Rfam assigns this 74-nucleotide RNA from Medicago truncatula to the family "MIR5272 microRNA precursor family".

RNA sequence: UUUAAGGUGAAUUGAUUUAUGUUUGGAUACACUUAUUUAAAAAUGAUUUUUAUAAGUUGAUGUUUUUUGGAUAA
Numbered sequence: 001u002u003u004a005a006g007g008u009g010a011a012u013u014g015a016u017u018u019a020u021g022u023u024u025g026g027a028u029a030c031a032c033u034u035a036u037u038u039a040a041a042a043a044u045g046a047u048u049u050u051u052a053u054a055a056g057u058u059g060a061u062g063u064u065u066u067u068u069g070g071a072u073a074a
Stems, first nucleotide, its partner, number of pairs: 011061008021053002025049004030045002033042002

Description:
Taxonomically the source falls in Medicago (Eukaryota, eudicotyledons, Pentapetalae, fabids). Its family is annotated with RISC complex and miRNA-mediated post-transcriptional gene silencing in the Gene Ontology. Rfam 15.1 lists 271 matches to the family in 4 species.